RNA sequence: CCCAUCCAAGAUGACGAGUUGAUCUCGUAUAUCCUCCACGGCCUCGACGUCGACUACCAGCCGCUCGUCUCCGCCCUCGACGCUCGCGUCACGCCCGUCACCCUCGACGAGCUCUUUACCAUGCUGAGUAACUUCGAUC
Number, nucleotide and partner (000 for none) at each position: 001c000002c000003c000004a138005u137006c136007c000008a134009a000010g000011a000012u000013g000014a000015c000016g000017a000018g000019u000020u000021g000022a000023u000024c000025u000026c000027g000028u000029a000030u000031a000032u000033c000034c000035u000036c000037c000038a000039c000040g000041g000042c000043c000044u000045c000046g000047a000048c000049g000050u000051c000052g000053a000054c000055u000056a000057c000058c000059a000060g000061c000062c000063g000064c000065u000066c000067g000068u000069c000070u000071c000072c000073g000074c000075c000076c000077u000078c000079g000080a000081c000082g000083c000084u000085c000086g000087c000088g108089u107090c106091a000092c000093g103094c000095c000096c000097g000098u000099c000100a000101c000102c000103c093104u000105c000106g090107a089108c088109g000110a000111g000112c000113u000114c000115u000116u000117u000118a000119c000120c000121a000122u000123g000124c000125u000126g000127a000128g000129u000130a000131a000132c000133u000134u008135c000136g006137a005138u004139c000
Rfam assigns this 139-nucleotide RNA from Triticum turgidum to the family "Small nucleolar RNA Z247".
NCBI's taxonomy places the organism under Eukaryota, commelinids, Poales, Pooideae, Triticum turgidum.
It is annotated as a C/D-box small nucleolar RNA.
On this family, see Chen et al., Nucleic Acids Res 2003: "The high diversity of snoRNAs in plants: identification and comparative study of 120 snoRNA genes from Oryza sativa".